[Rfam]
RNA sequence: GGGGAGGUGCCAGAGAGGUCGAAUGGGGCCGCCUGCUAAGUGGUUGUCGGGAGCUAAACUCUCGACCGCGGGUUCGAAUCCCGCCCUCCCCG
Numbered sequence: 001g002g003g004g005a006g007g008u009g010c011c012a013g014a015g016a017g018g019u020c021g022a023a024u025g026g027g028g029c030c031g032c033c034u035g036c037u038a039a040g041u042g043g044u045u046g047u048c049g050g051g052a053g054c055u056a057a058a059c060u061c062u063c064g065a066c067c068g069c070g071g072g073u074u075c076g077a078a079u080c081c082c083g084c085c086c087u088c089c090c091c092g
Base pairs, nucleotide, nucleotide: 001091002090003089004088005087006086007085010026011025012024028044029043030042031041032040068084069083070082071081072080
RNA: tRNA